[Rfam]
RNA: ACEA small nucleolar RNA U3
Organism: Stylonychia lemnae
RNA sequence: AAGACUGUACUCGUACAGGAUCGUUUCUAUAGUAGAAACGUCUGAUUUGCACUAACAAAUUAGACAAUAAUCUAAUCCAGGAUGAUAAGAAAUACGCAUCCACUCGUAAAGCGAGAUAAGUUCUUCCACUGUGAUCGCCGAAAGGCUUGAUUCGGUGCGAAGAGUGAAGACCGUCCUCUAGUCAGCUCUUCACAGAGCAGGCCAAGAGUGAGAGUGGAUGUGAGGUUGACUGGAC
Numbered sequence: 001a002a003g004a005c006u007g008u009a010c011u012c013g014u015a016c017a018g019g020a021u022c023g024u025u026u027c028u029a030u031a032g033u034a035g036a037a038a039c040g041u042c043u044g045a046u047u048u049g050c051a052c053u054a055a056c057a058a059a060u061u062a063g064a065c066a067a068u069a070a071u072c073u074a075a076u077c078c079a080g081g082a083u084g085a086u087a088a089g090a091a092a093u094a095c096g097c098a099u100c101c102a103c104u105c106g107u108a109a110a111g112c113g114a115g116a117u118a119a120g121u122u123c124u125u126c127c128a129c130u131g132u133g134a135u136c137g138c139c140g141a142a143a144g145g146c147u148u149g150a151u152u153c154g155g156u157g158c159g160a161a162g163a164g165u166g167a168a169g170a171c172c173g174u175c176c177u178c179u180a181g182u183c184a185g186c187u188c189u190u191c192a193c194a195g196a197g198c199a200g201g202c203c204a205a206g207a208g209u210g211a212g213a214g215u216g217g218a219u220g221u222g223a224g225g226u227u228g229a230c231u232g233g234a235c
Stems, first nucleotide, its partner, number of pairs: 002041001006036001008034004017028004046069001048067001052063003076234005095222005101216005111174003121163002126157001176208004181203001